A member of the RNA family "RNase MRP" from Phialophora macrospora, 656 nucleotides long. The family has 66 seed sequences and 3,510 matches in Rfam 15.1. Rfam describes the family as follows. RNase MRP is an enzymatically active ribonucleoprotein with two distinct roles in eukaryotes. In mitochondria it plays a direct role in the initiation of mitochondrial DNA replication. In the nucleus it is involved in precursor rRNA processing, where it cleaves the internal transcribed spacer 1 between 18S and 5.8S rRNAs. Despite distinct functions, RNase MRP has been shown to be evolutionarily related to RNase P. Like eukaryotic RNase P, RNase MRP is not catalytically active without associated protein subunits.
[Rfam]
RNA sequence: UCCGCGCUCGAAGGAUCGCAUUCAAAGCUCACGCACAGCAGAGGGGCCCACCAGCCUCUUUGCACACCCUCAAGCUUUGGGAGAAAGUCCCCGGACCGCCCUACCUUCCGCCGCACGACGGAAGAACGUCAGGACCUGCCGCGAGGCACCGCCAUAAAAGCACCAACCACUGCGGUUUCUCACCCUUUGCGCCUCCCGCUCUUUCUCCCAGCUCUCGGGCGCCGCGGGUUACUUCCGACCUCGUCGUCGUCUGUAUUCCUUCUCCUCUUGCGGGCGGGGGGUUUCCGGACGGGAAGGGGGGGCCGCCUCACAUCUUCGAUGAGAGAAGAAAAUCGUCCUGGAGGAAUGGAUGAAGACACGAGUCCGUUUCUCCGCCACGGGAUGUCAUUUUCUUCUUCUCCUCUGAAGCCGAGACGCUACCCCCCCCCCCUCCAUCCUCCCCCUCCACCCCAUGGGGCCGCGAAGAGAAGAGACGACGAGGGUAAAUUGGGAGGUGGUCUGCAUGUCUGGGCCAUGCUCGGAGAAGCUACAGAGUGAUUUUUGGAGGUUGCGCCAAUUCGUCACAUGUUCAAAAGUUAUGCGAUUGCUUGGGCCUGGGGCGCGCUCGCGUGCGCCCAAGGCCGAGUAACUCGAUGGGGCUUAUUCUCGAGGCGCGG
Numbered sequence: 001u002c003c004g005c006g007c008u009c010g011a012a013g014g015a016u017c018g019c020a021u022u023c024a025a026a027g028c029u030c031a032c033g034c035a036c037a038g039c040a041g042a043g044g045g046g047c048c049c050a051c052c053a054g055c056c057u058c059u060u061u062g063c064a065c066a067c068c069c070u071c072a073a074g075c076u077u078u079g080g081g082a083g084a085a086a087g088u089c090c091c092c093g094g095a096c097c098g099c100c101c102u103a104c105c106u107u108c109c110g111c112c113g114c115a116c117g118a119c120g121g122a123a124g125a126a127c128g129u130c131a132g133g134a135c136c137u138g139c140c141g142c143g144a145g146g147c148a149c150c151g152c153c154a155u156a157a158a159a160g161c162a163c164c165a166a167c168c169a170c171u172g173c174g175g176u177u178u179c180u181c182a183c184c185c186u187u188u189g190c191g192c193c194u195c196c197c198g199c200u201c202u203u204u205c206u207c208c209c210a211g212c213u214c215u216c217g218g219g220c221g222c223c224g225c226g227g228g229u230u231a232c233u234u235c236c237g238a239c240c241u242c243g244u245c246g247u248c249g250u251c252u253g254u255a256u257u258c259c260u261u262c263u264c265c266u267c268u269u270g271c272g273g274g275c276g277g278g279g280g281g282u283u284u285c286c287g288g289a290c291g292g293g294a295a296g297g298g299g300g301g302g303c304c305g306c307c308u309c310a311c312a313u314c315u316u317c318g319a320u321g322a323g324a325g326a327a328g329a330a331a332a333u334c335g336u337c338c339u340g341g342a343g344g345a346a347u348g349g350a351u352g353a354a355g356a357c358a359c360g361a362g363u364c365c366g367u368u369u370c371u372c373c374g375c376c377a378c379g380g381g382a383u384g385u386c387a388u389u390u391u392c393u394u395c396u397u398c399u400c401c402u403c404u405g406a407a408g409c410c411g412a413g414a415c416g417c418u419a420c421c422c423c424c425c426c427c428c429c430c431u432c433c434a435u436c437c438u439c440c441c442c443c444u445c446c447a448c449c450c451c452a453u454g455g456g457g458c459c460g461c462g463a464a465g466a467g468a469a470g471a472g473a474c475g476a477c478g479a480g481g482g483u484a485a486a487u488u489g490g491g492a493g494g495u496g497g498u499c500u501g502c503a504u505g506u507c508u509g510g511g512c513c514a515u516g517c518u519c520g521g522a523g524a525a526g527c528u529a530c531a532g533a534g535u536g537a538u539u540u541u542u543g544g545a546g547g548u549u550g551c552g553c554c555a556a557u558u559c560g561u562c563a564c565a566u567g568u569u570c571a572a573a574a575g576u577u578a579u580g581c582g583a584u585u586g587c588u589u590g591g592g593c594c595u596g597g598g599g600c601g602c603g604c605u606c607g608c609g610u611g612c613g614c615c616c617a618a619g620g621c622c623g624a625g626u627a628a629c630u631c632g633a634u635g636g637g638g639c640u641u642a643u644u645c646u647c648g649a650g651g652c653g654c655g656g
Base pairs, nucleotide, nucleotide: 002656003655004654005653006652007651008649009648010647011646014585015584016583017582018581019580022081023079024078025077026076027075028074038063039062040061041060042059043058044057045056046055047054085641086640087639089638090637091636092635107122108121109120110119442550445547446546450544451543452542459536460535461534520530522528523527587625588624589623590622591621